[Rfam]
RNA sequence: AAUUCCCGGAGAAUGGACUCCGGGAAGAUAGAAGAAAAAAAUCAAGAUUUGAGUAGUAAAAAUAAAGGAAUAUCUUUCAA
Numbered sequence: 001a002a003u004u005c006c007c008g009g010a011g012a013a014u015g016g017a018c019u020c021c022g023g024g025a026a027g028a029u030a031g032a033a034g035a036a037a038a039a040a041a042u043c044a045a046g047a048u049u050u051g052a053g054u055a056g057u058a059a060a061a062a063u064a065a066a067g068g069a070a071u072a073u074c075u076u077u078c079a080a
Base pairs, nucleotide, nucleotide: 003026004025005024006023007022008021009020010019011018064077065076066075067074
Record summary
Shown here is an 80-nucleotide RNA sequence, a member of the family "Plastid-rpl20 3UTR RNA". From the family's description: Plastid rpl20 is a non-coding RNA (ncRNA) recognised in plastids. It was found in the three prime untranslated region (3UTR) of rpl20 gene, it presence in the 3UTR region sugest a role in transcript maduration. The sequence is in the family's curated seed alignment.